TPP riboswitch aptamer (THI element): a 104-nucleotide RNA sequence from Bacillus sp. J14TS2. From the family's description: Vitamin B(1) in its active form thiamin pyrophosphate (TPP) is an essential coenzyme that is synthesised by coupling of pyrimidine and thiazole moieties in bacteria.
RNA sequence: UGUUUCUACUAGGGGAGCCAUUAUGGCUGAGAUUAAAGUAUUCUUUAGGACCCUUAGAACCUGAACUGGUUAAUACCAGCGGAGGGAAGUGGAAUUUUUUCAUU
Numbered sequence: 001u002g003u004u005u006c007u008a009c010u011a012g013g014g015g016a017g018c019c020a021u022u023a024u025g026g027c028u029g030a031g032a033u034u035a036a037a038g039u040a041u042u043c044u045u046u047a048g049g050a051c052c053c054u055u056a057g058a059a060c061c062u063g064a065a066c067u068g069g070u071u072a073a074u075a076c077c078a079g080c081g082g083a084g085g086g087a088a089g090u091g092g093a094a095u096u097u098u099u100u101c102a103u104u
Base pairs, nucleotide, nucleotide: 006092007091008090009089010088011054012053013052014051017027018026019025020024034047035046036045037044038043060085061084062083066079067078068077069076
A search with the family's covariance model found it, with a score of 89 bits.